[Rfam]
Nucleotides: 285
Base pairs, nucleotide, nucleotide: 002014003013004012020281021280023278024277026273027272028271030269031268034266036264038262039261040260045258046257047256050255052253053252054251055250056249057248058247059246075240076239077238079237081235083233085231086230088225089224090223091222092221093220094219095218097215098214099213100212103210104209105208106207108149111146112145113144114142115141116140118136119135120134121133122132124131125130150154158206159205160204161203162202163201164200172197173196174195179190180189181188
Number, partner (000 for none) and nucleotide at each position: 001000c002014g003013g004012c005000u006000g007000u008000a009000a010000u011000g012004g013003u014002c015000a016000a017000u018000c019000g020281g021280u022000a023278g024277a025000a026273g027272g028271c029000u030269u031268u032000c033000a034266c035000a036264a037000u038262u039261u040260c041000u042000c043000a044000a045258a046257c047256c048000u049000u050255u051000c052253c053252c054251c055250a056249c057248c058247c059246a060000a061000g062000u063000c064000c065000g066000u067000a068000a069000g070000a071000u072000c073000c074000c075240c076239c077238c078000g079237g080000u081235u082000c083233g084000a085231c086230g087000c088225c089224c090223a091222g092221c093220g094219c095218g096000a097215a098214c099213g100212c101000u102000c103210g104209c105208g106207g107000u108149g109000g110000u111146c112145g113144c114142a115141c116140a117000c118136u119135c120134g121133a122132u123000c124131g125130g126000g127000a128000a129000a130125c131124c132122a133121u134120c135119g136118a137000u138000g139000c140116u141115g142114u143000c144113g145112c146111g147000c148000c149108c150154c151000u152000a153000a154150g155000c156000a157000a158206u159205g160204g161203g162202g163201a164200u165000g166000a167000c168000c169000u170000u171000a172197c173196u174195c175000c176000a177000g178000g179190g180189a181188g182000g183000c184000u185000u186000c187000a188181c189180u190179c191000c192000g193000c194000a195174g196173a197172g198000a199000c200164a201163u202162c203161c204160c205159c206158a207106c208105c209104g210103u211000c212100g213099c214098g215097u216000g217000g218095c219094g220093c221092g222091c223090u224089g225088g226000a227000u228000u229000a230086c231085g232000a233083u234000c235081g236000c237079c238077g239076g240075g241000g242000g243000a244000u245000u246059u247058g248057g249056g250055u251054g252053g253052g254000u255050g256047g257046g258045u259000u260040g261039a262038g263000a264036u265000g266034g267000a268031g269030a270000u271028g272027u273026c274000a275000a276000c277024u278023c279000c280021a281020u282000a283000a284000u285000u

Shown here is a 285-nucleotide RNA sequence from Scedosporium apiospermum, a member of the family "Fungal signal recognition particle RNA". NCBI's taxonomy places the organism under Eukaryota, Pezizomycotina, Hypocreomycetidae, Microascales, Scedosporium. Its family is annotated with signal recognition particle, plasma membrane targeting, signal recognition particle, endoplasmic reticulum targeting and SRP-dependent cotranslational protein targeting to membrane, signal sequence recognition in the Gene Ontology. The family has 50 seed sequences and 748 matches in Rfam 15.1. It is annotated as a non-coding RNA gene.